Overview:
Shown here is a 105-nucleotide RNA from Heyndrickxia oleronia, a member of the family "SAM riboswitch aptamer (S box leader)". Lineage of the source: Bacteria > Bacillati > Bacillota > Bacillaceae > Heyndrickxia. Rfam links the family to the GO term regulation of gene expression.
[Rfam]
RNA sequence: UUCUUAUCAAGAGAAGCCGAGGGACUGGUCCGAUGACGCUUCAGCAACCUCUACAUCAAGUAGAAAGGUGCUAAUUCCAGCAAGCAUAGUCUUGAGAGAUAAGAG
Number, nucleotide and partner (000 for none) at each position: 001u105002u104003c103004u102005u101006a100007u099008c098009a000010a000011g000012a000013g042014a041015a040016g039017c038018c000019g000020a000021g031022g030023g029024a000025c080026u079027g078028g077029u023030c022031c021032g000033a000034u000035g000036a000037c000038g017039c016040u015041u014042c013043a072044g071045c070046a069047a000048c068049c067050u064051c063052u062053a061054c000055a000056u000057c000058a000059a000060g000061u053062a052063g051064a050065a000066a000067g049068g048069u046070g045071c044072u043073a000074a000075u000076u097077c028078c027079a026080g025081c094082a093083a092084g091085c000086a000087u000088a000089g000090u000091c084092u083093u082094g081095a000096g000097a076098g008099a007100u006101a005102a004103g003104a002105g001